Rfam assigns this 75-nucleotide RNA from Anaeromyces robustus to the family "Small nucleolar RNA snoR53Y". For this family Rfam cites "Multiple snoRNA gene clusters from Arabidopsis" (Brown et al., RNA, 2001). Its family is annotated with nucleolus and RNA processing in the Gene Ontology. The base pairs follow the family's consensus structure, which was predicted with WAR.
Nucleotides: 075
Stems, first nucleotide, its partner, number of pairs: 001074005
Number, partner (000 for none) and nucleotide at each position: 001074u002073a003072u004071u005070g006000c007000u008000a009000u010000g011000a012000u013000g014000g015000u016000u017000u018000u019000a020000c021000c022000a023000u024000g025000c026000u027000a028000a029000u030000a031000c032000u033000g034000a035000a036000a037000u038000a039000a040000a041000u042000u043000g044000u045000u046000g047000a048000a049000a050000u051000u052000u053000u054000u055000u056000u057000c058000u059000c060000u061000a062000a063000g064000a065000c066000u067000g068000a069000g070005c071004a072003a073002u074001a075000a